This 103-nucleotide sequence from Priestia taiwanensis belongs to the Rfam family "Purine riboswitch aptamer". Riboswitches are metabolite binding domains within certain messenger RNAs that serve as precision sensors for their corresponding targets. Lineage of the source: Bacteria > Bacillota > Bacilli > Bacillaceae > Priestia. Gene Ontology term of the family: purine nucleobase biosynthetic process. A search with the family's covariance model found it, with a score of 80 bits.

[Rfam]
RNA sequence: AUCGAUAAUAAAGAAGCUACUCAUAUAAUCGUAGGGAUAUGGCCUACAAGUUUCUACCUAGCUACCGUAAAUUAGCUGGACUAUGAGUGAGCGCGUGUAGUCU
Numbered sequence: 001a002u003c004g005a006u007a008a009u010a011a012a013g014a015a016g017c018u019a020c021u022c023a024u025a026u027a028a029u030c031g032u033a034g035g036g037a038u039a040u041g042g043c044c045u046a047c048a049a050g051u052u053u054c055u056a057c058c059u060a061g062c063u064a065c066c067g068u069a070a071a072u073u074a075g076c077u078g079g080a081c082u083a084u085g086a087g088u089g090a091g092c093g094c095g096u097g098u099a100g101u102c103u
Stems, first nucleotide, its partner, number of pairs: 018089008029049001031047005058079007